[Rfam]
The record is an 83-nucleotide sequence from Dyella thiooxydans, which matches "tRNA" in Rfam. The family's consensus secondary structure is taken from published work. Transfer RNA (tRNA) molecules are approximately 80 nucleotides in length.
Nucleotides: 083
Stems, first nucleotide, its partner, number of pairs: 001082007010026003028044005059075005
Number, partner (000 for none) and nucleotide at each position: 001082g002081c003080g004079a005078a006077a007076g008000u009000g010026g011025c012024g013000g014000a015000a016000c017000u018000g019000g020000u021000a022000g023000a024012c025011g026010c027000a028044c029043c030042a031041g032040a033000u034000u035000u036000a037000g038000g039000u040032u041031c042030u043029g044028g045000c046000g047000g048000g049000u050000a051000a052000u053000c054000c055000c056000c057000g058000u059075g060074c061073g062072g063071g064000u065000u066000c067000g068000a069000g070000u071063c072062c073061c074060g075059c076007c077006u078005u079004u080003c081002g082001c083000a